A member of the RNA family "Small nucleolar RNA SNORD74" from Salmo trutta, 81 nucleotides long.
The literature on the family includes a 1998 paper in Mol Cell Biol by Smith and Steitz, "Classification of gas5 as a multi-small-nucleolar-RNA (snoRNA) host gene and a member of the 5'-terminal oligopyrimidine gene family reveals common features of snoRNA host genes".
The organism belongs to Salmo, within Eukaryota.
The base pairs follow the family's consensus structure, which was predicted with PFOLD.

RNA sequence: CCUUUCUUAUAUGAUGAAAUAAGUGUUGGUAGGGACAUCUGAGUUAAAUUGAUGAAACGCCAACCAUUCUGACUUAAAACG
Number, nucleotide and partner (000 for none) at each position: 001c081002c000003u079004u078005u077006c000007u000008u000009a000010u000011a000012u000013g000014a000015u000016g000017a000018a000019a000020u000021a000022a000023g000024u000025g000026u000027u000028g000029g000030u000031a000032g000033g000034g000035a000036c000037a000038u000039c000040u000041g000042a000043g000044u000045u000046a000047a000048a000049u000050u000051g000052a000053u000054g000055a000056a000057a000058c000059g000060c000061c000062a000063a000064c000065c000066a000067u000068u000069c000070u000071g000072a000073c000074u000075u000076a000077a005078a004079a003080c000081g001
The family's RNA type in Rfam is C/D-box small nucleolar RNA. Gene Ontology terms of the family: RNA processing and nucleolus.